[Rfam]
A member of the RNA family "Selenocysteine transfer RNA" from Fimbriiglobus ruber, 83 nucleotides long. The source organism's lineage runs through Bacteria, Planctomycetota, Planctomycetia, Gemmataceae and Fimbriiglobus.
RNA sequence: GGAAGGGCGAGCCAACUGGUGAUGGCACCCGUCUUGAAAACGGGCGAGCGACGAGCCUUGAGGGUUCGACUCCCUCUCCUUCC
Numbered sequence: 001g002g003a004a005g006g007g008c009g010a011g012c013c014a015a016c017u018g019g020u021g022a023u024g025g026c027a028c029c030c031g032u033c034u035u036g037a038a039a040a041c042g043g044g045c046g047a048g049c050g051a052c053g054a055g056c057c058u059u060g061a062g063g064g065u066u067c068g069a070c071u072c073c074c075u076c077u078c079c080u081u082c083c
Base pairs, nucleotide, nucleotide: 001083002082003081005080006079007078009076011026012025013024014023016021028044029043030042031041032040047058048057061075062074063073064072